Rfam assigns this 150-nucleotide sequence from Roseburia sp. AM16-25 to the family "glmS glucosamine-6-phosphate activated ribozyme aptamer". The family's RNA type in Rfam is riboswitch. The match comes from Rfam's covariance-model search (86 bits). For this family Rfam cites "Evidence for preorganization of the glmS ribozyme ligand binding pocket" (Hampel and Tinsley, Biochemistry, 2006). The source organism's lineage runs through Bacteria, Bacillati, Bacillota, Clostridia and Roseburia. The base pairs follow the family's consensus structure, which is taken from published work.

[Rfam]
RNA sequence: GUCCUCAGUUUAGCGCCAGGACCUUAGAAAAAGGUCGACGAGGAGAAGGGUUAUCGAAAAUUCGGCGGAUGCCCUUCCGUAGAUCUCAAUGCGACAUAUAUUGGCAAAUAUGUGGGUAACUACAAAACAAAUCCAAUAUAAUGAGAGUAA
Numbered sequence: 001g002u003c004c005u006c007a008g009u010u011u012a013g014c015g016c017c018a019g020g021a022c023c024u025u026a027g028a029a030a031a032a033g034g035u036c037g038a039c040g041a042g043g044a045g046a047a048g049g050g051u052u053a054u055c056g057a058a059a060a061u062u063c064g065g066c067g068g069a070u071g072c073c074c075u076u077c078c079g080u081a082g083a084u085c086u087c088a089a090u091g092c093g094a095c096a097u098a099u100a101u102u103g104g105c106a107a108a109u110a111u112g113u114g115g116g117u118a119a120c121u122a123c124a125a126a127a128c129a130a131a132u133c134c135a136a137u138a139u140a141a142u143g144a145g146a147g148u149a150a
Stems, first nucleotide, its partner, number of pairs: 020036006045077005054065004078093004097140007111124005